RNA sequence: GUCUUCCUUGUCUUGGGGAGCAUUAUGUCCAAUGAUUGUCUAGAGAGGGCAUAGAUGCUGACACCAAUAUUUAAACCGCACGCGCCCAGACAUGUCUGAGCGCAAUUUUUGGAAGC
Numbered sequence: 001g002u003c004u005u006c007c008u009u010g011u012c013u014u015g016g017g018g019a020g021c022a023u024u025a026u027g028u029c030c031a032a033u034g035a036u037u038g039u040c041u042a043g044a045g046a047g048g049g050c051a052u053a054g055a056u057g058c059u060g061a062c063a064c065c066a067a068u069a070u071u072u073a074a075a076c077c078g079c080a081c082g083c084g085c086c087c088a089g090a091c092a093u094g095u096c097u098g099a100g101c102g103c104a105a106u107u108u109u110u111g112g113a114a115g116c
Base pairs, nucleotide, nucleotide: 005019006018007017008016009015020058021057022056023055024053025052026051027050028049029048030047036044037043082103083102084101085100088097089096090095
RNA: U4atac minor spliceosomal RNA
Organism: Thrips palmi